Rfam assigns this 104-nucleotide sequence from gamma proteobacterium HTCC5015 to the family "Glycine riboswitch aptamer". This family represents the bacterial glycine riboswitch. NCBI's taxonomy places the organism under Bacteria, Pseudomonadati, Pseudomonadota, Gammaproteobacteria.
[Rfam]
RNA sequence: UUCACCCCCGUGGGAGAGCUUCGCGGCUAGCGGGUCUAGUUUGGCGAAGCGCCGAAGGCGCAACCGGCUCGGAAACGCUCAGGCCCCCGGACCGCGGGCGGACG
Number, nucleotide and partner (000 for none) at each position: 001u000002u000003c000004a000005c000006c000007c098008c097009c096010g095011u094012g093013g092014g000015a000016g000017a000018g000019c049020u048021u047022c046023g045024c044025g000026g000027c000028u000029a000030g000031c000032g000033g000034g000035u000036c000037u000038a000039g000040u000041u000042u000043g000044g024045c023046g022047a021048a020049g019050c000051g084052c083053c082054g080055a079056a000057g000058g078059c077060g076061c000062a000063a000064c072065c071066g000067g000068c000069u000070c000071g065072g064073a000074a000075a000076c060077g059078c058079u055080c054081a000082g053083g052084c051085c000086c000087c000088c000089g000090g000091a000092c013093c012094g011095c010096g009097g008098g007099c000100g000101g000102a000103c000104g000